[Rfam]
Nucleotides: 104
Base pairs, nucleotide, nucleotide: 010091011090012089013088014087015086016085018083019082021080022079023078024077025076027074028073029072030071032067033065034064035063037061038060039059040058042056043055044054
Number, partner (000 for none) and nucleotide at each position: 001000c002000g003000u004000c005000g006000c007000c008000c009000g010091u011090g012089c013088a014087c015086c016085g017000c018083g019082g020000c021080c022079u023078c024077u025076g026000c027074c028073c029072g030071a031000a032067c033065c034064g035063g036000c037061c038060c039059u040058g041000a042056c043055g044054u045000a046000c047000u048000u049000c050000c051000c052000c053000a054044a055043c056042g057000c058040c059039a060038g061037g062000u063035c064034c065033g066000u067032g068000c069000u070000c071030u072029c073028g074027g075000a076025c077024a078023g079022g080021g081000a082019c083018c084000a085016c086015g087014g088013u089012g090011c091010a092000g093000g094000g095000g096000c097000c098000c099000c100000c101000g102000c103000c104000g

Shown here is a 104-nucleotide sequence from Mycolicibacterium hassiacum, a member of the family "mraW RNA". Pairs were carried over by alignment from the consensus structure, which is taken from published work. Lineage of the source: Bacteria > Actinomycetes > Mycobacteriaceae > Mycobacterium > Mycolicibacterium hassiacum. Rfam 15.1 lists 851 matches to the family in 821 species.